[Rfam]
RNA sequence: GUGCAUCUAGUACGAAUUGAACUUAUGACUUCGCCAAUUAUGAGUUGAGUGCUUUAACCAUUUAGCCAUGAAUGC
Numbered sequence: 001g002u003g004c005a006u007c008u009a010g011u012a013c014g015a016a017u018u019g020a021a022c023u024u025a026u027g028a029c030u031u032c033g034c035c036a037a038u039u040a041u042g043a044g045u046u047g048a049g050u051g052c053u054u055u056a057a058c059c060a061u062u063u064a065g066c067c068a069u070g071a072a073u074g075c
Stems, first nucleotide, its partner, number of pairs: 003075004008070001010026003014022001040069003044066008